[Rfam]
RNA sequence: AGUAUAAUGCAGUGUAAGUCGCUUUGGAUAAAAGCGUCUGCUAAAUGUAAAUGU
Numbered sequence: 001a002g003u004a005u006a007a008u009g010c011a012g013u014g015u016a017a018g019u020c021g022c023u024u025u026g027g028a029u030a031a032a033a034g035c036g037u038c039u040g041c042u043a044a045a046u047g048u049a050a051a052u053g054u
Stems, first nucleotide, its partner, number of pairs: 013043001014041003020036006
RNA: UnaL2 LINE 3' element
Organism: Anabarilius grahami